Shown here is a 102-nucleotide RNA from Sesamum indicum, a member of the family "Small nucleolar RNA Z122". NCBI's taxonomy places the organism under Eukaryota, Viridiplantae, Euphyllophyta, Lamiales, Sesamum. It scores 61 bits against the family's covariance model. The family's consensus secondary structure was predicted with PFOLD.
RNA sequence: UUUGGGAAAUGAUGAGAAUCUAUCGACUCAUGUUUCAGAGGCUCAGUGACUAUCUGUUGCUCUGCUGAACGAUUUUCUUUUGCACGUCAGUCUGAUCCCAAA
Numbered sequence: 001u002u003u004g005g006g007a008a009a010u011g012a013u014g015a016g017a018a019u020c021u022a023u024c025g026a027c028u029c030a031u032g033u034u035u036c037a038g039a040g041g042c043u044c045a046g047u048g049a050c051u052a053u054c055u056g057u058u059g060c061u062c063u064g065c066u067g068a069a070c071g072a073u074u075u076u077c078u079u080u081u082g083c084a085c086g087u088c089a090g091u092c093u094g095a096u097c098c099c100a101a102a
Stems, first nucleotide, its partner, number of pairs: 001102007

A reference for the family is Chen et al. (2003), "The high diversity of snoRNAs in plants: identification and comparative study of 120 snoRNA genes from Oryza sativa", Nucleic Acids Res.
Rfam classes the family as a C/D-box small nucleolar RNA.
Its family is annotated with RNA processing and nucleolus in the Gene Ontology.